[Rfam]
The record is an 82-nucleotide sequence from Maylandia zebra, which matches "mir-729 microRNA precursor family" in Rfam. Gene Ontology terms of the family: miRNA-mediated post-transcriptional gene silencing and RISC complex. The base pairs follow the family's consensus structure, which was predicted with RNAalifold. Rfam 15.1 lists 43 matches to the family in 36 species.

RNA sequence: GACCUUUAGAGCGGGGGCUGUAUCAUAACCAGGCUGUGAGCUGCAUGGAGCAUGGGUAUGAUACGACUUCAGUUUGGAGGUG
Numbered sequence: 001g002a003c004c005u006u007u008a009g010a011g012c013g014g015g016g017g018c019u020g021u022a023u024c025a026u027a028a029c030c031a032g033g034c035u036g037u038g039a040g041c042u043g044c045a046u047g048g049a050g051c052a053u054g055g056g057u058a059u060g061a062u063a064c065g066a067c068u069u070c071a072g073u074u075u076g077g078a079g080g081u082g
Base pairs, nucleotide, nucleotide: 002081003080004079005078006077007076009075010074011073012072014070015069016068017067019065020064021063022062023061024060025059026058027057029055030054031053033051034050035047036046037045